[Rfam]
RNA sequence: UAGAGUGGGUUGCCUAAUCUAGUUCCCCCAUGAACUAGAGCGGAGGAACCAACCUUUGGGGCUAAUCUCAGCCUGAACCUGAGAGAGACACCUUCCAGUCUUAGCCCGUCAGCUAACUCCGUCGGCAUAUGGAAGGAGCAAC
Numbered sequence: 001u002a003g004a005g006u007g008g009g010u011u012g013c014c015u016a017a018u019c020u021a022g023u024u025c026c027c028c029c030a031u032g033a034a035c036u037a038g039a040g041c042g043g044a045g046g047a048a049c050c051a052a053c054c055u056u057u058g059g060g061g062c063u064a065a066u067c068u069c070a071g072c073c074u075g076a077a078c079c080u081g082a083g084a085g086a087g088a089c090a091c092c093u094u095c096c097a098g099u100c101u102u103a104g105c106c107c108g109u110c111a112g113c114u115a116a117c118u119c120c121g122u123c124g125g126c127a128u129a130u131g132g133a134a135g136g137a138g139c140a141a142c
Stems, first nucleotide, its partner, number of pairs: 011127004018039008040122006050058002059107003067083004086101004
Notes: The family of this 142-nucleotide RNA from Pseudanabaena sp. FACHB-2040 is "c-di-AMP riboswitch aptamer (ydaO/yuaA leader)". The match comes from Rfam's covariance-model search (73 bits).